[Rfam]
Annotation
A member of the RNA family "antisense RNA of dnaA mRNA" from Photobacterium aphoticum, 81 nucleotides long. Pairs were carried over by alignment from the consensus structure, which was predicted with RNAfold. Taxonomically the source falls in Photobacterium (Bacteria, Pseudomonadota, Vibrionales, Vibrionaceae).
RNA sequence: UUUGGCGUUCGGUUUGCGAUCGGCAAUCGCGUUGCCCACCGCGUGCAACAAGUGGGUUUUACCUAAACCGGUACCACCGUA
Numbered sequence: 001u002u003u004g005g006c007g008u009u010c011g012g013u014u015u016g017c018g019a020u021c022g023g024c025a026a027u028c029g030c031g032u033u034g035c036c037c038a039c040c041g042c043g044u045g046c047a048a049c050a051a052g053u054g055g056g057u058u059u060u061a062c063c064u065a066a067a068c069c070g071g072u073a074c075c076a077c078c079g080u081a
Base pairs, nucleotide, nucleotide: 005042006041007040009038011036012035013034016032017031018030020029052077053076054075056074057073061072062071063070